Rfam assigns this 90-nucleotide sequence from Zizania palustris to the family "Small nucleolar RNA R12". Gene Ontology terms of the family: RNA processing and nucleolus. By type it is a C/D-box small nucleolar RNA. The family has 9 seed sequences and 992 matches in Rfam 15.1. A reference for the family is Chen et al. (2003), "The high diversity of snoRNAs in plants: identification and comparative study of 120 snoRNA genes from Oryza sativa", Nucleic Acids Res. It scores 79 bits against the family's covariance model.

RNA sequence: AUCUGGGUGAUGAAGAAAAUAAGACGGAUUCCCAUUGAUUCCACAUUGAUUUUCCUAAAUGAUUUUAACAACCAGCUACUUCUGACAGAU
Number, nucleotide and partner (000 for none) at each position: 001a090002u089003c088004u087005g086006g000007g000008u000009g000010a000011u000012g000013a000014a000015g000016a000017a000018a000019a000020u000021a000022a000023g000024a000025c000026g000027g000028a000029u000030u000031c000032c000033c000034a000035u000036u000037g000038a000039u000040u000041c000042c000043a000044c000045a000046u000047u000048g000049a000050u000051u000052u000053u000054c000055c000056u000057a000058a000059a000060u000061g000062a000063u000064u000065u000066u000067a000068a000069c000070a000071a000072c000073c000074a000075g000076c000077u000078a000079c000080u000081u000082c000083u000084g000085a000086c005087a004088g003089a002090u001